[Rfam]
Nucleotides: 374
Stems, first nucleotide, its partner, number of pairs: 001374004008367002012311007022077004035059006087358005096280004153164004167182005184274004190269003204258003312346003316342005
Number, partner (000 for none) and nucleotide at each position: 001374u002373c003372c004371u005000c006000u007000u008367c009366a010000a011000c012311g013310c014309u015308g016307c017306g018305u019000u020000u021000c022077u023076a024075u025074g026000c027000u028000a029000c030000a031000a032000a033000c034000g035059g036058a037057g038056a039055g040054c041000c042000u043000g044000c045000g046000u047000g048000a049000g050000c051000a052000g053000u054040g055039c056038u057037u058036u059035c060000a061000c062000u063000c064000u065000u066000u067000c068000c069000a070000c071000u072000a073000g074025c075024a076023u077022a078000u079000g080000a081000g082000a083000a084000a085000u086000u087358c088357g089356g090355a091354g092000a093000a094000u095000c096280a097279g098278c099277u100000u101000c102000a103000c104000u105000c106000u107000u108000u109000g110000g111000c112000c113000c114000g115000u116000c117000c118000a119000u120000c121000u122000a123000c124000g125000c126000u127000u128000u129000g130000g131000c132000g133000u134000u135000c136000g137000a138000u139000g140000g141000g142000u143000a144000g145000c146000g147000g148000g149000c150000u151000c152000c153164g154163c155162c156161g157000g158000u159000g160000a161156c162155g163154g164153c165000u166000u167182g168181a169180c170179g171178c172000g173000a174000u175000a176000u177000c178171g179170c180169g181168u182167u183000u184274g185273u186272a187271a188000u189000u190269g191268g192267c193000a194000u195000c196000a197000g198000a199000a200000a201000a202000g203000c204258a205257g206256g207000g208000c209000c210000u211000g212000g213000g214000g215000c216000u217000g218000c219000c220000u221000c222000g223000u224000g225000u226000c227000u228000c229000g230000g231000c232000g233000c234000g235000a236000g237000u238000g239000u240000c241000a242000g243000u244000u245000u246000u247000u248000c249000c250000c251000a252000g253000g254000u255000u256206c257205c258204u259000c260000u261000g262000g263000g264000a265000g266000g267192g268191c269190c270000a271187u272186u273185a274184c275000g276000a277099a278098g279097c280096u281000u282000g283000u284000g285000a286000u287000c288000a289000a290000a291000c292000a293000c294000u295000u296000g297000a298000g299000u300000g301000c302000a303000a304000u305018a306017c307016g308015c309014a310013g311012c312346g313345u314344g315000c316342g317341g318340u319339g320338u321000c322000c323000u324000c325000g326000u327000c328000u329000u330000g331000c332000g333000g334000g335000g336000u337000a338320a339319c340318a341317c342316u343000u344314c345313a346312u347000g348000a349000u350000c351000c352000g353000a354091u355090u356089c357088c358087g359000a360000u361000u362000a363000u364000u365000c366009u367008g368000u369000u370000g371004a372003g373002g374001a
About this RNA: The family of this 374-nucleotide RNA sequence from Madurella mycetomatis is "Nuclear RNase P". From the family's description: Ribonuclease P (RNase P) is a ubiquitous endoribonuclease, found in archaea, bacteria and eukarya as well as chloroplasts and mitochondria. Its best characterised activity is the generation of mature 5'-ends of tRNAs by cleaving the 5'-leader elements of precursor-tRNAs. Cellular RNase Ps are ribonucleoproteins. RNA from bacterial RNase Ps retains its catalytic activity in the absence of the protein subunit, i.e. it is a ribozyme. Isolated eukaryotic and archaeal RNase P RNA has not been shown to retain its catalytic function, but is still essential for the catalytic activity of the holoenzyme. Although the archaeal and eukaryotic holoenzyme s have a much greater protein content than the bacterial ones, the RNA cores from all the three lineages are homologous -- helices corresponding to P1, P2, P3, P4, and P10/11 are common to all cellular RNase P RNAs. Yet, there is considerable sequence variation, particularly among the eukaryotic RNAs. Rfam classes the family as a ribozyme. A search with the family's covariance model found it, with a score of 57 bits.